Shown here is a 594-nucleotide part of an RNA from Cryptosporidium muris, a member of the family "Eukaryotic small subunit ribosomal RNA". The literature on the family includes a 2001 paper in Science by Yusupov et al., "Crystal structure of the ribosome at 5.5 A resolution". It scores 1801 bits against the family's covariance model. Its Rfam clan is "SSU clan". The family's consensus secondary structure is taken from published work. Lineage of the source: Eukaryota > Sar > Conoidasida > Cryptosporidium > Cryptosporidium muris.

RNA sequence: AACCUGGUUGAUCCUGCCAGUAGUCAUAUGCUUGUCUCAAAGAUUAAGCCAUGCAUGUCUAAGUAUAAGCUUUUUAUACGGCGAAACUGCGAAUGGCUCAUUAAAACAGUUAUAGUUUACUUGAUAAUCAAAACUACAUGGAUAACCGUGGUAAUUCUAGAGCUAAUACAUGCGAAAAAACCCAACUUUGCGGAAGGGUUGUAUUUAUUAGAUAAAGAACCAAUGAGCUUGGUGAUUCAUAAUAACUUUACGGAUCGCAUCUCUGAUGCGACAUAUCAUUCAAGUUUCUGACCUAUCAGCUUUAGACGGUAGGGUAUUGGCCUACCGUGGCUAUGACGGGUAACGGGGAAUUAGGGUUCGAUUCCGGAGAGGGAGCCUGAGAAACGGCUACCACAUCUAAGGAAGGCAGCAGGCGCGCAAAUUACCCAAUCCUGACACAGGGAGGUAGUGACAAGAAAUAACAAUACAGGGCCUAACGGUCUUGUAAUUGGAAUGAGUGAAGUAUAAACCCCUUUACGAGUAUCAAUUGGAGGGCAAGUCUGGUGCCAGCAGCCGCGGUAAUUCCAGCUCCAAUAGCGUAUAUUAAAGUUGUUG
Numbered sequence: 001a002a003c004c005u006g007g008u009u010g011a012u013c014c015u016g017c018c019a020g021u022a023g024u025c026a027u028a029u030g031c032u033u034g035u036c037u038c039a040a041a042g043a044u045u046a047a048g049c050c051a052u053g054c055a056u057g058u059c060u061a062a063g064u065a066u067a068a069g070c071u072u073u074u075u076a077u078a079c080g081g082c083g084a085a086a087c088u089g090c091g092a093a094u095g096g097c098u099c100a101u102u103a104a105a106a107c108a109g110u111u112a113u114a115g116u117u118u119a120c121u122u123g124a125u126a127a128u129c130a131a132a133a134c135u136a137c138a139u140g141g142a143u144a145a146c147c148g149u150g151g152u153a154a155u156u157c158u159a160g161a162g163c164u165a166a167u168a169c170a171u172g173c174g175a176a177a178a179a180a181c182c183c184a185a186c187u188u189u190g191c192g193g194a195a196g197g198g199u200u201g202u203a204u205u206u207a208u209u210a211g212a213u214a215a216a217g218a219a220c221c222a223a224u225g226a227g228c229u230u231g232g233u234g235a236u237u238c239a240u241a242a243u244a245a246c247u248u249u250a251c252g253g254a255u256c257g258c259a260u261c262u263c264u265g266a267u268g269c270g271a272c273a274u275a276u277c278a279u280u281c282a283a284g285u286u287u288c289u290g291a292c293c294u295a296u297c298a299g300c301u302u303u304a305g306a307c308g309g310u311a312g313g314g315u316a317u318u319g320g321c322c323u324a325c326c327g328u329g330g331c332u333a334u335g336a337c338g339g340g341u342a343a344c345g346g347g348g349a350a351u352u353a354g355g356g357u358u359c360g361a362u363u364c365c366g367g368a369g370a371g372g373g374a375g376c377c378u379g380a381g382a383a384a385c386g387g388c389u390a391c392c393a394c395a396u397c398u399a400a401g402g403a404a405g406g407c408a409g410c411a412g413g414c415g416c417g418c419a420a421a422u423u424a425c426c427c428a429a430u431c432c433u434g435a436c437a438c439a440g441g442g443a444g445g446u447a448g449u450g451a452c453a454a455g456a457a458a459u460a461a462c463a464a465u466a467c468a469g470g471g472c473c474u475a476a477c478g479g480u481c482u483u484g485u486a487a488u489u490g491g492a493a494u495g496a497g498u499g500a501a502g503u504a505u506a507a508a509c510c511c512c513u514u515u516a517c518g519a520g521u522a523u524c525a526a527u528u529g530g531a532g533g534g535c536a537a538g539u540c541u542g543g544u545g546c547c548a549g550c551a552g553c554c555g556c557g558g559u560a561a562u563u564c565c566a567g568c569u570c571c572a573a574u575a576g577c578g579u580a581u582a583u584u585a586a587a588g589u590u591g592u593u594g
Base pairs, nucleotide, nucleotide: 004020005019006018007017008016022584023583024582026581027580028579029578030577031576032575035456036455037454041449042416048414049413050412052411053410054409057090058089062088063087064086069082070081097369098368099367107290108289109288112285113284116283117282122278123277124276125275137172138171139170140169146162149159150158151157179200180199181198182197183196186193187192205245206244207243208242209241210240219233220232221231222230255271256270257269258268259267260266292340293339294338299331300330301329306328307327308326309325310324311323312322313321344366345365346364347363348359349358350357351356371392372391374389375388376387394405396403397402422447424446425445426444430442431441432440433439434438462490463489464488465486466485467484468483469482470481471480472479473478497517498516499514501513502512527573528572529571530570531569532568540567541566542565543564549556550555